[Rfam]
RNA sequence: GGACGUUGCGGCUUAAUCGGAUUCAACGCCGGAAAGAGGGUUAACAAAUCGGCAAGCAUGUUAUUACUUACUCACGUAAUGAUUAAUUACCUAGGGUGUGUGGUGAUAAGGCAUUGUGACAAGCGGUGGAUCAUCGACGAGUUAUGUCUGGAGUUAAAGAUUACUCCCAAGUGCUGUGAGAACUGUUCUCCGCCCUUUAGUAAAAUUGGGCGCUGAUAGAAGGGUUAGAGUUGGAAAAUCAAUCCUUUAUCUGCUUGCCGAUGGUUAACCCUCCCGGAGACCUUACCGGGGGCGACGGCAGGAUGAUGGUCAGGCUGACGACCUUACCGGACGAGCCGAGAGGAGGUGCAUGGCCGUCGCCGGUGCGUGCCGUGAGGUGUCCUGUUAAUUCAGGCAACGGACGAGACCCGCGCCCCCUGUUGCCAUCGGCCGAAAGGCGCUGGGCACUCAGGGGGGACCGCCCCCGAAAGGGGGAGGAAGGAGCGGGCUACGGCAGGUCGGUAUGCCCCGAAUCCCCCGGGCCGCACGCGACGUUCAAUGGCGGAGACAGUGGGACGCCACCCCGAAAGGGGGAGCUAAUCCCUAAACUCCGCCUCAGUU
Numbered sequence: 001g002g003a004c005g006u007u008g009c010g011g012c013u014u015a016a017u018c019g020g021a022u023u024c025a026a027c028g029c030c031g032g033a034a035a036g037a038g039g040g041u042u043a044a045c046a047a048a049u050c051g052g053c054a055a056g057c058a059u060g061u062u063a064u065u066a067c068u069u070a071c072u073c074a075c076g077u078a079a080u081g082a083u084u085a086a087u088u089a090c091c092u093a094g095g096g097u098g099u100g101u102g103g104u105g106a107u108a109a110g111g112c113a114u115u116g117u118g119a120c121a122a123g124c125g126g127u128g129g130a131u132c133a134u135c136g137a138c139g140a141g142u143u144a145u146g147u148c149u150g151g152a153g154u155u156a157a158a159g160a161u162u163a164c165u166c167c168c169a170a171g172u173g174c175u176g177u178g179a180g181a182a183c184u185g186u187u188c189u190c191c192g193c194c195c196u197u198u199a200g201u202a203a204a205a206u207u208g209g210g211c212g213c214u215g216a217u218a219g220a221a222g223g224g225u226u227a228g229a230g231u232u233g234g235a236a237a238a239u240c241a242a243u244c245c246u247u248u249a250u251c252u253g254c255u256u257g258c259c260g261a262u263g264g265u266u267a268a269c270c271c272u273c274c275c276g277g278a279g280a281c282c283u284u285a286c287c288g289g290g291g292g293c294g295a296c297g298g299c300a301g302g303a304u305g306a307u308g309g310u311c312a313g314g315c316u317g318a319c320g321a322c323c324u325u326a327c328c329g330g331a332c333g334a335g336c337c338g339a340g341a342g343g344a345g346g347u348g349c350a351u352g353g354c355c356g357u358c359g360c361c362g363g364u365g366c367g368u369g370c371c372g373u374g375a376g377g378u379g380u381c382c383u384g385u386u387a388a389u390u391c392a393g394g395c396a397a398c399g400g401a402c403g404a405g406a407c408c409c410g411c412g413c414c415c416c417c418u419g420u421u422g423c424c425a426u427c428g429g430c431c432g433a434a435a436g437g438c439g440c441u442g443g444g445c446a447c448u449c450a451g452g453g454g455g456g457a458c459c460g461c462c463c464c465c466g467a468a469a470g471g472g473g474g475a476g477g478a479a480g481g482a483g484c485g486g487g488c489u490a491c492g493g494c495a496g497g498u499c500g501g502u503a504u505g506c507c508c509c510g511a512a513u514c515c516c517c518c519g520g521g522c523c524g525c526a527c528g529c530g531a532c533g534u535u536c537a538a539u540g541g542c543g544g545a546g547a548c549a550g551u552g553g554g555a556c557g558c559c560a561c562c563c564c565g566a567a568a569g570g571g572g573g574a575g576c577u578a579a580u581c582c583c584u585a586a587a588c589u590c591c592g593c594c595u596c597a598g599u600u
Stems, first nucleotide, its partner, number of pairs: 001536010011525002017277004286520007296338004301332001308328003312324003342509002345507004351503002353498003356494004363402002366399003369378003381394004408486004413455007423444002427442003430437002458477002461474005540594007552583003557576002561572004

Archaeal small subunit ribosomal RNA: a 600-nucleotide part of an RNA from Candidatus Calditenuaceae archaeon HR02.
It scores 1377 bits against the family's covariance model.
The family is grouped with related families in Rfam's "SSU clan".
Rfam 15.1 lists 709 matches to the family in 491 species.
A reference for the family is Yusupov et al. (2001), "Crystal structure of the ribosome at 5.5 A resolution", Science.